[Rfam]
RNA sequence: AGCCUGUGAUGAGGAUUAAGAUUUUCUGACACCUCGAAUGAGUGCGGCUAAUGCAGUACUUGAUUACAUUUAAAUUCUGAGGCUC
Numbered sequence: 001a002g003c004c005u006g007u008g009a010u011g012a013g014g015a016u017u018a019a020g021a022u023u024u025u026c027u028g029a030c031a032c033c034u035c036g037a038a039u040g041a042g043u044g045c046g047g048c049u050a051a052u053g054c055a056g057u058a059c060u061u062g063a064u065u066a067c068a069u070u071u072a073a074a075u076u077c078u079g080a081g082g083c084u085c
Base pairs, nucleotide, nucleotide: 001084002083003082004081044057045056047054048053